[Rfam]
RNA sequence: AACGUCCUUAUCGGGGUCGAGCGUCAGUUCCGUGAUCGUGAAGUGAGAGCUGCGUUGCUGACACCUGAAUCACAACACUUUCUCACCAACAAAAUAUUUUGUUCGGUGAAAUUUUUGGAAAU
Numbered sequence: 001a002a003c004g005u006c007c008u009u010a011u012c013g014g015g016g017u018c019g020a021g022c023g024u025c026a027g028u029u030c031c032g033u034g035a036u037c038g039u040g041a042a043g044u045g046a047g048a049g050c051u052g053c054g055u056u057g058c059u060g061a062c063a064c065c066u067g068a069a070u071c072a073c074a075a076c077a078c079u080u081u082c083u084c085a086c087c088a089a090c091a092a093a094a095u096a097u098u099u100u101g102u103u104c105g106g107u108g109a110a111a112u113u114u115u116u117g118g119a120a121a122u
Base pairs, nucleotide, nucleotide: 006016007015008014009013019058021056025052026051027050028049029048030047037043083109084108085107086106087105088103089102090101091100092099093098
Rfam assigns this 122-nucleotide RNA from Paramuricea clavata to the family "U4atac minor spliceosomal RNA". It is annotated as a spliceosomal small nuclear RNA. The source organism's lineage runs through Eukaryota, Metazoa, Eumetazoa, Malacalcyonacea and Paramuricea. Rfam describes the family as follows. U4atac is an essential component of the minor U12-type spliceosome complex which is required for removal of the rarer class of eukaryotic introns (AT-AC, U12-type). The family is grouped with related families in Rfam's "U4 clan". A search with the family's covariance model found it, with a score of 66 bits. Pairs were carried over by alignment from the consensus structure, which is taken from published work.